[Rfam]
RNA sequence: AAUCUUGAGUAAUCGCGGUCUACUUUUGUAGGCUGAGGAAAGUCCAUGCCCGCACAAGCUGCGAUGCUUGUAGUGUUCGUGCUAAGCCCAAUAAGCUUAGGGGCCAGUAAUGGCUACGGCGACUAAAUCCGCUAAGGGCAACUAUGCGGUAGUAGGUCUGAAAAGUGCCACAGUGACGAAACACAAUCGGAAACGGUUGUGGUGGAACGGGUAAACCCCGCGAGCGAGUAACCCAAACUUUGGUAGGGGCGUUUUGCCAUGGGAAUUUGAACCGACGGCAAUACAGCGUAAGCUGAGAUAGAUGAUUACUGAAGGGGACCACGCCUGGUGGAAACUGGAACAAAACAUGGCUUAUAGAG
Numbered sequence: 001a002a003u004c005u006u007g008a009g010u011a012a013u014c015g016c017g018g019u020c021u022a023c024u025u026u027u028g029u030a031g032g033c034u035g036a037g038g039a040a041a042g043u044c045c046a047u048g049c050c051c052g053c054a055c056a057a058g059c060u061g062c063g064a065u066g067c068u069u070g071u072a073g074u075g076u077u078c079g080u081g082c083u084a085a086g087c088c089c090a091a092u093a094a095g096c097u098u099a100g101g102g103g104c105c106a107g108u109a110a111u112g113g114c115u116a117c118g119g120c121g122a123c124u125a126a127a128u129c130c131g132c133u134a135a136g137g138g139c140a141a142c143u144a145u146g147c148g149g150u151a152g153u154a155g156g157u158c159u160g161a162a163a164a165g166u167g168c169c170a171c172a173g174u175g176a177c178g179a180a181a182c183a184c185a186a187u188c189g190g191a192a193a194c195g196g197u198u199g200u201g202g203u204g205g206a207a208c209g210g211g212u213a214a215a216c217c218c219c220g221c222g223a224g225c226g227a228g229u230a231a232c233c234c235a236a237a238c239u240u241u242g243g244u245a246g247g248g249g250c251g252u253u254u255u256g257c258c259a260u261g262g263g264a265a266u267u268u269g270a271a272c273c274g275a276c277g278g279c280a281a282u283a284c285a286g287c288g289u290a291a292g293c294u295g296a297g298a299u300a301g302a303u304g305a306u307u308a309c310u311g312a313a314g315g316g317g318a319c320c321a322c323g324c325c326u327g328g329u330g331g332a333a334a335c336u337g338g339a340a341c342a343a344a345a346c347a348u349g350g351c352u353u354a355u356a357g358a359g
Base pairs, nucleotide, nucleotide: 004359005358006357007355008310009309010308011307012306013305014304016035017034018033019032020031021030040353041352042351044350045349046348047347048346049228051226052225053224054071055070056069057068058067059066077223078222079221080220081219082100083099084098085097086096087095101117102115103114104113105112106111118218119217121158122157123156124155129149130148131147132146136143137142165216166215167212168211169210182201183200184199185198186197187196188195189194232248233247234246252283254281255280256279257278258277284295285294286293287292314336315335319331320330321329322328
This 359-nucleotide sequence from Lacticaseibacillus saniviri belongs to the Rfam family "Bacterial RNase P class B". For this family Rfam cites "Ribonuclease P: unity and diversity in a tRNA processing ribozyme" (Frank and Pace, Annu Rev Biochem, 1998). Clan: RNaseP clan. It is annotated as a ribozyme. Gene Ontology terms of the family: tRNA processing, ribonuclease P activity and dimeric ribonuclease P complex. The organism belongs to Lacticaseibacillus saniviri, within Bacteria.